Notes
A member of the RNA family "TPP riboswitch aptamer (THI element)" from Lipingzhangella halophila, 112 nucleotides long. Lineage of the source: Bacteria > Actinomycetota > Actinomycetes > Streptosporangiales > Lipingzhangella. A search with the family's covariance model found it, with a score of 60 bits. Gene Ontology term of the family: thiamine pyrophosphate binding. From the family's description: Vitamin B(1) in its active form thiamin pyrophosphate (TPP) is an essential coenzyme that is synthesised by coupling of pyrimidine and thiazole moieties in bacteria.
RNA sequence: GCAGAAACCCGCGGGAGCCGGGUGGGACCCGGCUGAGAGGGAGGCUGUGAGCCUCCGACCGCACGCACCUGAUCCGGGUCAUACCGGCGAAGGGAGAGGCAGACACACCGUG
Numbered sequence: 001g002c003a004g005a006a007a008c009c010c011g012c013g014g015g016a017g018c019c020g021g022g023u024g025g026g027a028c029c030c031g032g033c034u035g036a037g038a039g040g041g042a043g044g045c046u047g048u049g050a051g052c053c054u055c056c057g058a059c060c061g062c063a064c065g066c067a068c069c070u071g072a073u074c075c076g077g078g079u080c081a082u083a084c085c086g087g088c089g090a091a092g093g094g095a096g097a098g099g100c101a102g103a104c105a106c107a108c109c110g111u112g
Base pairs, nucleotide, nucleotide: 008098010096011062012061013060014059017033018032019031020030021029040056041055042054043053044052045051046050068093069092070091074087075086076085077084